RNA sequence: UCUAUGGAGUGUCAUAACAAAUGAAAGUAGCUACGGCAAAAUCAGACACGUUGAAGUAGAAA
Numbered sequence: 001u002c003u004a005u006g007g008a009g010u011g012u013c014a015u016a017a018c019a020a021a022u023g024a025a026a027g028u029a030g031c032u033a034c035g036g037c038a039a040a041a042u043c044a045g046a047c048a049c050g051u052u053g054a055a056g057u058a059g060a061a062a
Stems, first nucleotide, its partner, number of pairs: 001060005009049005022044003030037002